[Rfam]
RNA: HNH endonuclease-associated RNA and ORF (HEARO) RNA
RNA sequence: GUCAGCACCCCGCUCUAAAGAGACGGGGCAUCAUGCUUCUCUUUUUAGGUAGCUGACCAGCCUAAGUCCCUUGAGGACUACGUUAUCGGUGAGAGUUAACGUUCCUACCCUGAGAUGCUUGCCAGUCGAAGGCUCAUGAACCACAGCAUUAAACAGUCCUACGAGGGGUAAGACAGUGUGUUGUGGAAAGUACCGACCGAUAACAUUGGCGAGGCAAACAUUAC
Dot-bracket structure: (((((((.((((.((....))..)).))((...))..............).))))))..(((.((((((.....)))))..(((((((((............((....(((..(((..[[[[[.)))..))).....)).(((((((((...((.(((.(((.....))).))).))))))))))).........))))))))).).)))..]]].]]......
Numbered sequence: 001g002u003c004a005g006c007a008c009c010c011c012g013c014u015c016u017a018a019a020g021a022g023a024c025g026g027g028g029c030a031u032c033a034u035g036c037u038u039c040u041c042u043u044u045u046u047a048g049g050u051a052g053c054u055g056a057c058c059a060g061c062c063u064a065a066g067u068c069c070c071u072u073g074a075g076g077a078c079u080a081c082g083u084u085a086u087c088g089g090u091g092a093g094a095g096u097u098a099a100c101g102u103u104c105c106u107a108c109c110c111u112g113a114g115a116u117g118c119u120u121g122c123c124a125g126u127c128g129a130a131g132g133c134u135c136a137u138g139a140a141c142c143a144c145a146g147c148a149u150u151a152a153a154c155a156g157u158c159c160u161a162c163g164a165g166g167g168g169u170a171a172g173a174c175a176g177u178g179u180g181u182u183g184u185g186g187a188a189a190g191u192a193c194c195g196a197c198c199g200a201u202a203a204c205a206u207u208g209g210c211g212a213g214g215c216a217a218a219c220a221u222u223a224c
Stems, first nucleotide, its partner, number of pairs: 001057006007050001009028002011025002014021002029035002060210003064206001065079005082204009103139002109132003114127003119218002121215003141186009153177002156174003160170003